The record is a 76-nucleotide sequence from Rhinopithecus roxellana, which matches "Small nucleolar RNA SNORD115" in Rfam. Rfam classes the family as a C/D-box small nucleolar RNA. On this family, see Cavaille et al., Proc Natl Acad Sci U S A 2000: "Identification of brain-specific and imprinted small nucleolar RNA genes exhibiting an unusual genomic organization". It scores 65 bits against the family's covariance model. The family's consensus secondary structure was predicted with PFOLD.

RNA sequence: GUGUCAGUGAUGAGAUGUUAUCUUGAAGAGAAAUGGUGAUGUAAAAAUUAAGCUCAGAUGGAUUAUGCUGAGGCCC
Dot-bracket structure: (.((((.((........................................................)).))..)).)
Numbered sequence: 001g002u003g004u005c006a007g008u009g010a011u012g013a014g015a016u017g018u019u020a021u022c023u024u025g026a027a028g029a030g031a032a033a034u035g036g037u038g039a040u041g042u043a044a045a046a047a048u049u050a051a052g053c054u055c056a057g058a059u060g061g062a063u064u065a066u067g068c069u070g071a072g073g074c075c076c
Stems, first nucleotide, its partner, number of pairs: 001076001003074002005070002008067002
Lineage of the source: Eukaryota > Bilateria > Theria > Haplorrhini > Rhinopithecus.